[Rfam]
RNA sequence: AUCAAGGGAGUAGCAGACGAUUGGCGGAGCGAUUGAAAGCCCUGCAAUCGUGUCACUGUCGUCAUUACGAAAGAAAUUUCCGGCACUGACUUAAACAGCGAGACUUGUUUUUAAAACAGGUCUCUUUUU
Numbered sequence: 001a002u003c004a005a006g007g008g009a010g011u012a013g014c015a016g017a018c019g020a021u022u023g024g025c026g027g028a029g030c031g032a033u034u035g036a037a038a039g040c041c042c043u044g045c046a047a048u049c050g051u052g053u054c055a056c057u058g059u060c061g062u063c064a065u066u067a068c069g070a071a072a073g074a075a076a077u078u079u080c081c082g083g084c085a086c087u088g089a090c091u092u093a094a095a096c097a098g099c100g101a102g103a104c105u106u107g108u109u110u111u112u113a114a115a116a117c118a119g120g121u122c123u124c125u126u127u128u129u
Stems, first nucleotide, its partner, number of pairs: 005051001007049002011046001013045004052090004057085005064079001068073001100124011
Streptococcus sRNA 10: a 129-nucleotide sequence from Streptococcus downei.